RNA sequence: GUGAAGUACUGUAAACUCAAUCUAGUAGUACCCUCACUUGAAGUGACUAUGCUGUAUGUGGUAUCCUUCUACGCAAUAUGGCCUGUUCUCUCCUGAACAAGAAACCAGUUCUUGGUAUUGCUUCACUGUAACUGCCAUUUUCCAUUGAUGAAUAUUCUACUCUUCUGCUGGGGAGAGUAAGAGAUGAGAACACAGUUUGGGGGGG
Numbered sequence: 001g002u003g004a005a006g007u008a009c010u011g012u013a014a015a016c017u018c019a020a021u022c023u024a025g026u027a028g029u030a031c032c033c034u035c036a037c038u039u040g041a042a043g044u045g046a047c048u049a050u051g052c053u054g055u056a057u058g059u060g061g062u063a064u065c066c067u068u069c070u071a072c073g074c075a076a077u078a079u080g081g082c083c084u085g086u087u088c089u090c091u092c093c094u095g096a097a098c099a100a101g102a103a104a105c106c107a108g109u110u111c112u113u114g115g116u117a118u119u120g121c122u123u124c125a126c127u128g129u130a131a132c133u134g135c136c137a138u139u140u141u142c143c144a145u146u147g148a149u150g151a152a153u154a155u156u157c158u159a160c161u162c163u164u165c166u167g168c169u170g171g172g173g174a175g176a177g178u179a180a181g182a183g184a185u186g187a188g189a190a191c192a193c194a195g196u197u198u199g200g201g202g203g204g205g
Base pairs, nucleotide, nucleotide: 001037002036003035004034006031007030008029009028010027015021046059047058049057050056068205069204070203072201084192085191086190087189088188089187090186093183094182097155099153108142113137114136115135116134118131119130120129121128158179159178160177161176162175163174164173165172166171